[Rfam]
The record is a 75-nucleotide sequence from Desulfonatronospira thiodismutans, which matches "tRNA" in Rfam. Taxonomically the source falls in Desulfonatronospira thiodismutans (Bacteria, Thermodesulfobacteriota, Desulfovibrionia, Desulfonatronovibrionaceae). The match comes from Rfam's covariance-model search (68 bits).
RNA sequence: CGGGAUGUGGCUCAGUCUGGCUAGAGCGCAGCGUUCGGGACGCUGAGGCCGCAGGUUCGAAUCCUGCCAUCCCGA
Numbered sequence: 001c002g003g004g005a006u007g008u009g010g011c012u013c014a015g016u017c018u019g020g021c022u023a024g025a026g027c028g029c030a031g032c033g034u035u036c037g038g039g040a041c042g043c044u045g046a047g048g049c050c051g052c053a054g055g056u057u058c059g060a061a062u063c064c065u066g067c068c069a070u071c072c073c074g075a
Stems, first nucleotide, its partner, number of pairs: 001074007010027004029045005051067005
Rfam classes the family as a transfer RNA.